[Rfam]
RNA sequence: GGCGCGGGUAGAAGCGGCCAGGGCCUCCUGAAGGGCGCCCGGGGCAUUGCUCCACGA
Numbered sequence: 001g002g003c004g005c006g007g008g009u010a011g012a013a014g015c016g017g018c019c020a021g022g023g024c025c026u027c028c029u030g031a032a033g034g035g036c037g038c039c040c041g042g043g044g045c046a047u048u049g050c051u052c053c054a055c056g057a
Stems, first nucleotide, its partner, number of pairs: 006052005015042001018044002021040004026035002

This 57-nucleotide sequence from Muricoccus pecuniae belongs to the Rfam family "Xanthine riboswitch aptamer (NMT1 RNA)". Gene Ontology term of the family: purine nucleobase binding. For this family Rfam cites "Insights into xanthine riboswitch structure and metal ion-mediated ligand recognition" (Xu et al., Nucleic Acids Res, 2021). The organism belongs to Muricoccus, within Bacteria. The family's consensus secondary structure is taken from published work.